[Rfam]
RNA sequence: CCCCUCGGCAGAGCUAACACCACCUUCAGUGAGUGCCGGAGAUAAGCGCCGGAGAGGGGGCCCCUU
Numbered sequence: 001c002c003c004c005u006c007g008g009c010a011g012a013g014c015u016a017a018c019a020c021c022a023c024c025u026u027c028a029g030u031g032a033g034u035g036c037c038g039g040a041g042a043u044a045a046g047c048g049c050c051g052g053a054g055a056g057g058g059g060g061c062c063c064c065u066u
Stems, first nucleotide, its partner, number of pairs: 001058003013034003036052004041047001